[Rfam]
RNA sequence: GUAGCAGGACGCUUGUGUCGCUUGCCGAUGGAGGUGAGCUCCGGAGCGGCAAGAGGAAAGUCCGGGCAACACAGAGCACCAUACUCUCUAACAGUGAGCUGUCGGUGACGGCAGAGUAACGUGACAGAAAAUAACAGCCUGCCAACAAUUCAGUCCCGCAAGGGCCUGGAAAGCAGGCAAUGGUGAAAAGGUGGGGUAAGAGCCCACCGGGUGUCAUGGCAACAUGGCAUGCCGCACGUCUUAUGGGUUGCAAGGCCAUGUAUACCGGCGCGUGACAGAACAACUUUCGCAAUCGCGAAGUGUCACAAUGGGCUGCUCGUCCAUAGCCGGGGGGUAGGCUGCUGGAGUGCCGAAGCAAAGCGAGGCACCGAUUAGAUAAAUGACACGGGCGCCGCGGCAACCUUCCGGAUCUUCGGGUCCAAGUGUAGAAGUCCCGCGGUGACAUAACCCGGCUUAUAGUCCUGCUACCUUU
Numbered sequence: 001g002u003a004g005c006a007g008g009a010c011g012c013u014u015g016u017g018u019c020g021c022u023u024g025c026c027g028a029u030g031g032a033g034g035u036g037a038g039c040u041c042c043g044g045a046g047c048g049g050c051a052a053g054a055g056g057a058a059a060g061u062c063c064g065g066g067c068a069a070c071a072c073a074g075a076g077c078a079c080c081a082u083a084c085u086c087u088c089u090a091a092c093a094g095u096g097a098g099c100u101g102u103c104g105g106u107g108a109c110g111g112c113a114g115a116g117u118a119a120c121g122u123g124a125c126a127g128a129a130a131a132u133a134a135c136a137g138c139c140u141g142c143c144a145a146c147a148a149u150u151c152a153g154u155c156c157c158g159c160a161a162g163g164g165c166c167u168g169g170a171a172a173g174c175a176g177g178c179a180a181u182g183g184u185g186a187a188a189a190g191g192u193g194g195g196g197u198a199a200g201a202g203c204c205c206a207c208c209g210g211g212u213g214u215c216a217u218g219g220c221a222a223c224a225u226g227g228c229a230u231g232c233c234g235c236a237c238g239u240c241u242u243a244u245g246g247g248u249u250g251c252a253a254g255g256c257c258a259u260g261u262a263u264a265c266c267g268g269c270g271c272g273u274g275a276c277a278g279a280a281c282a283a284c285u286u287u288c289g290c291a292a293u294c295g296c297g298a299a300g301u302g303u304c305a306c307a308a309u310g311g312g313c314u315g316c317u318c319g320u321c322c323a324u325a326g327c328c329g330g331g332g333g334g335u336a337g338g339c340u341g342c343u344g345g346a347g348u349g350c351c352g353a354a355g356c357a358a359a360g361c362g363a364g365g366c367a368c369c370g371a372u373u374a375g376a377u378a379a380a381u382g383a384c385a386c387g388g389g390c391g392c393c394g395c396g397g398c399a400a401c402c403u404u405c406c407g408g409a410u411c412u413u414c415g416g417g418u419c420c421a422a423g424u425g426u427a428g429a430a431g432u433c434c435c436g437c438g439g440u441g442a443c444a445u446a447a448c449c450c451g452g453c454u455u456a457u458a459g460u461c462c463u464g465c466u467a468c469c470u471u472u
Stems, first nucleotide, its partner, number of pairs: 001468010011457001013388007021053007029045001058455003062452005067250004074318004079246005084098003088094001099114001101112004115241002119239005135182002137178006190208006210232001211230008254340004265330005309323005347368005352361001
RNA: Bacterial RNase P class A